The record is a 288-nucleotide RNA from Robinsoniella sp. RHS, which matches "T-box leader" in Rfam. It is annotated as a cis-regulatory leader.
RNA sequence: CCAAAACCGAUGAACAAGAGUAGUAAAUAAGAUUCGUUAUUCCCAGAGAGCUGCCGGUGGUGUGAAGGCGGUAAUAAAGAUUUUAUUGAAUGGACUUGCGAGGGCAGCUCAAAAUCACAGCAGUUAACGGAAACCCUGUAAAUAAUGCAGAGUGGAAGAGGUGAGAGUAGACGCUGACGGGAGCCUUAUCCGUUAUCAACGAGGUAUGUAUGAUCGUACAUAAAAAGAGUGGCUGAGUGAUCAGCAACUUGGGUGGUACCGCAGAAGCUACAGGCUUUUGUCCCUUGG
Numbered sequence: 001c002c003a004a005a006a007c008c009g010a011u012g013a014a015c016a017a018g019a020g021u022a023g024u025a026a027a028u029a030a031g032a033u034u035c036g037u038u039a040u041u042c043c044c045a046g047a048g049a050g051c052u053g054c055c056g057g058u059g060g061u062g063u064g065a066a067g068g069c070g071g072u073a074a075u076a077a078a079g080a081u082u083u084u085a086u087u088g089a090a091u092g093g094a095c096u097u098g099c100g101a102g103g104g105c106a107g108c109u110c111a112a113a114a115u116c117a118c119a120g121c122a123g124u125u126a127a128c129g130g131a132a133a134c135c136c137u138g139u140a141a142a143u144a145a146u147g148c149a150g151a152g153u154g155g156a157a158g159a160g161g162u163g164a165g166a167g168u169a170g171a172c173g174c175u176g177a178c179g180g181g182a183g184c185c186u187u188a189u190c191c192g193u194u195a196u197c198a199a200c201g202a203g204g205u206a207u208g209u210a211u212g213a214u215c216g217u218a219c220a221u222a223a224a225a226a227g228a229g230u231g232g233c234u235g236a237g238u239g240a241u242c243a244g245c246a247a248c249u250u251g252g253g254u255g256g257u258a259c260c261g262c263a264g265a266a267g268c269u270a271c272a273g274g275c276u277u278u279u280g281u282c283c284c285u286u287g288g
Base pairs, nucleotide, nucleotide: 007103008102015098016097017096018095026087027086028085029084030083031082039075040074041073050072051071052070053069054068055067105176106175107174108173178192179191180190232245233244234243235242236241251284252283253282261281262280263279264278265277266276267275268274
The match comes from Rfam's covariance-model search (114 bits). On this family, see Grundy et al., J Bacteriol 1994: "Interaction between the acceptor end of tRNA and the T box stimulates antitermination in the Bacillus subtilis tyrS gene: a new role for the discriminator base".